Background:
This 77-nucleotide sequence from Oreotrochilus melanogaster belongs to the Rfam family "Small nucleolar RNA SNORD26". Gene Ontology terms of the family: nucleolus and RNA processing. The source organism's lineage runs through Eukaryota, Gnathostomata, Sauropsida, Strisores and Oreotrochilus.

RNA sequence: CUGCGGGGAUGAUGGCUCCGAACUCUCUCUUGCCGAUGCCCCCGUGGGGAAAAACUGCUGAAGAUUUUCUGAGCGGC
Number, nucleotide and partner (000 for none) at each position: 001c076002u075003g074004c073005g000006g000007g000008g000009a000010u000011g000012a000013u000014g000015g000016c000017u000018c000019c000020g000021a000022a000023c000024u000025c000026u000027c000028u000029c000030u000031u000032g000033c000034c000035g000036a000037u000038g000039c000040c000041c000042c000043c000044g000045u000046g000047g000048g000049g000050a000051a000052a000053a000054a000055c000056u000057g000058c000059u000060g000061a000062a000063g000064a000065u000066u000067u000068u000069c000070u000071g000072a000073g004074c003075g002076g001077c000
Pairs were carried over by alignment from the consensus structure, which was predicted with PFOLD. The match comes from Rfam's covariance-model search (48 bits).